[Rfam]
RNA sequence: CGGACAGAGCUGGCGUAUCUGGUCUGCAUUCAUCCGUGUGUUCUUGGGCGUUUGGAUUGCCACUCUCCAGACUGGGAUGGUGUUCAUUCUGUUCAGGGGCUCAUGGAGCAUUUGCAGGCGGAGUGCGCUGAGAUGCUCGGAGCAGCUGCAUGAGCUUGGCUUUGAGGCCAGCCCUUCGGGGUCUGGUACCCGGGCUGUGGGAGUGCUGUUUGUUCUGGGUGCUGAGUGUGUGCAAUGGCAACGGGUCCGUGUUGGUUUGAGCUGGCGGUCGGUGGCGGUCGCGUGCGACACGUGCCAGCAGUCAGUUCGGUCCUGCUCGGGCUCUCAUUGCAUGUUCUCGGUGUAAAAGCCGGUCAUCUGUCCGACCCGUCUUGAAACACGG
Numbered sequence: 001c002g003g004a005c006a007g008a009g010c011u012g013g014c015g016u017a018u019c020u021g022g023u024c025u026g027c028a029u030u031c032a033u034c035c036g037u038g039u040g041u042u043c044u045u046g047g048g049c050g051u052u053u054g055g056a057u058u059g060c061c062a063c064u065c066u067c068c069a070g071a072c073u074g075g076g077a078u079g080g081u082g083u084u085c086a087u088u089c090u091g092u093u094c095a096g097g098g099g100c101u102c103a104u105g106g107a108g109c110a111u112u113u114g115c116a117g118g119c120g121g122a123g124u125g126c127g128c129u130g131a132g133a134u135g136c137u138c139g140g141a142g143c144a145g146c147u148g149c150a151u152g153a154g155c156u157u158g159g160c161u162u163u164g165a166g167g168c169c170a171g172c173c174c175u176u177c178g179g180g181g182u183c184u185g186g187u188a189c190c191c192g193g194g195c196u197g198u199g200g201g202a203g204u205g206c207u208g209u210u211u212g213u214u215c216u217g218g219g220u221g222c223u224g225a226g227u228g229u230g231u232g233c234a235a236u237g238g239c240a241a242c243g244g245g246u247c248c249g250u251g252u253u254g255g256u257u258u259g260a261g262c263u264g265g266c267g268g269u270c271g272g273u274g275g276c277g278g279u280c281g282c283g284u285g286c287g288a289c290a291c292g293u294g295c296c297a298g299c300a301g302u303c304a305g306u307u308c309g310g311u312c313c314u315g316c317u318c319g320g321g322c323u324c325u326c327a328u329u330g331c332a333u334g335u336u337c338u339c340g341g342u343g344u345a346a347a348a349g350c351c352g353g354u355c356a357u358c359u360g361u362c363c364g365a366c367c368c369g370u371c372u373u374g375a376a377a378c379a380c381g382g
Stems, first nucleotide, its partner, number of pairs: 001364008009354004023116001025114002125344009367382004